[Rfam]
This 372-nucleotide part of an RNA from Neospora caninum belongs to the Rfam family "Eukaryotic large subunit ribosomal RNA".
The organism belongs to Neospora, within Eukaryota.
Its family is annotated with ribosome and structural constituent of ribosome in the Gene Ontology.

RNA sequence: GACUUGAUACUGCGACAGUAAUCCAACUUAGUACGAGAGGAACAGUUGGGUCGGAUACUUGGUAAAUGCGGCUAGCUGAAAAGCUAGUGCCGCGACGCUACCAUCCGUUGGAUUAUGACUGAACGCCUCUAAGUCAGAAUCCAUGCUGGAUAUGCAGUGUUAUUCACCGCCUCCUCUUUUCAUGCAAUGAUACAGCCUUUGGCCCUGCUUCUCAUCAAAGCCCUUCGCUUCAUGCUUUUGGGCGAGAAUCUCAAUUUCUAACAUUGGAGGUGAUACACCAUUGCAGACGACUUUGUUGCAACCGGGUAUUGUAAGUAUGAGAGUAGCUUGUCCUACGAUCUACUAAGAUUUUUCCUGCGUUGUUCGAUGUGG
Numbered sequence: 001g002a003c004u005u006g007a008u009a010c011u012g013c014g015a016c017a018g019u020a021a022u023c024c025a026a027c028u029u030a031g032u033a034c035g036a037g038a039g040g041a042a043c044a045g046u047u048g049g050g051u052c053g054g055a056u057a058c059u060u061g062g063u064a065a066a067u068g069c070g071g072c073u074a075g076c077u078g079a080a081a082a083g084c085u086a087g088u089g090c091c092g093c094g095a096c097g098c099u100a101c102c103a104u105c106c107g108u109u110g111g112a113u114u115a116u117g118a119c120u121g122a123a124c125g126c127c128u129c130u131a132a133g134u135c136a137g138a139a140u141c142c143a144u145g146c147u148g149g150a151u152a153u154g155c156a157g158u159g160u161u162a163u164u165c166a167c168c169g170c171c172u173c174c175u176c177u178u179u180u181c182a183u184g185c186a187a188u189g190a191u192a193c194a195g196c197c198u199u200u201g202g203c204c205c206u207g208c209u210u211c212u213c214a215u216c217a218a219a220g221c222c223c224u225u226c227g228c229u230u231c232a233u234g235c236u237u238u239u240g241g242g243c244g245a246g247a248a249u250c251u252c253a254a255u256u257u258c259u260a261a262c263a264u265u266g267g268a269g270g271u272g273a274u275a276c277a278c279c280a281u282u283g284c285a286g287a288c289g290a291c292u293u294u295g296u297u298g299c300a301a302c303c304g305g306g307u308a309u310u311g312u313a314a315g316u317a318u319g320a321g322a323g324u325a326g327c328u329u330g331u332c333c334u335a336c337g338a339u340c341u342a343c344u345a346a347g348a349u350u351u352u353u354c355c356u357g358c359g360u361u362g363u364u365c366g367a368u369g370u371g372g
Stems, first nucleotide, its partner, number of pairs: 006161008016148004021051008052107005060100003067094005072087006109143003116136005169271006275370003278366001279295002283291001299362004304356003308349002315343003320339001323336004